[Rfam]
RNA: SL2 RNA
Organism: Caenorhabditis brenneri
RNA sequence: GAUAUCAUUGAGAUUUAACCAAGGUUAGCUGUCGUUUCGAACUCUCGAAAGAGUGUGUCGAAUAAUUAAAAUUUUUGGAAACGCUUCUUCGGGGUUAUCCGAAGAGGCGGA
Numbered sequence: 001g002a003u004a005u006c007a008u009u010g011a012g013a014u015u016u017a018a019c020c021a022a023g024g025u026u027a028g029c030u031g032u033c034g035u036u037u038c039g040a041a042c043u044c045u046c047g048a049a050a051g052a053g054u055g056u057g058u059c060g061a062a063u064a065a066u067u068a069a070a071a072u073u074u075u076u077g078g079a080a081a082c083g084c085u086u087c088u089u090c091g092g093g094g095u096u097a098u099c100c101g102a103a104g105a106g107g108c109g110g111a
Stems, first nucleotide, its partner, number of pairs: 007036001010032001015028001017026003038060003042055001044053003085109001087107004093100002